[Rfam]
RNA sequence: CGGAGGACUGAGAAGGUGAGGCAGUUAGCACUGUGCUGACUUCACCGGUUAAGACCUCCAAGAGCGAAGGCCUGCCUAGGCAAAGGAUGUCCCUCUGCUGCCCUUGGAGGGGCAGCGCUGUGCUGGCCGACAUUUG
Numbered sequence: 001c002g003g004a005g006g007a008c009u010g011a012g013a014a015g016g017u018g019a020g021g022c023a024g025u026u027a028g029c030a031c032u033g034u035g036c037u038g039a040c041u042u043c044a045c046c047g048g049u050u051a052a053g054a055c056c057u058c059c060a061a062g063a064g065c066g067a068a069g070g071c072c073u074g075c076c077u078a079g080g081c082a083a084a085g086g087a088u089g090u091c092c093c094u095c096u097g098c099u100g101c102c103c104u105u106g107g108a109g110g111g112g113c114a115g116c117g118c119u120g121u122g123c124u125g126g127c128c129g130a131c132a133u134u135u136g
Stems, first nucleotide, its partner, number of pairs: 002059005015046004019041002022038004079128003084124002087121003095115005101110002
The record is a 136-nucleotide RNA sequence from Felis catus, which matches "Small nucleolar RNA SNORA47" in Rfam. Rfam's curators put it in the seed alignment. Rfam 15.1 lists 733 matches to the family in 635 species. The base pairs follow the family's consensus structure, which was predicted with WAR.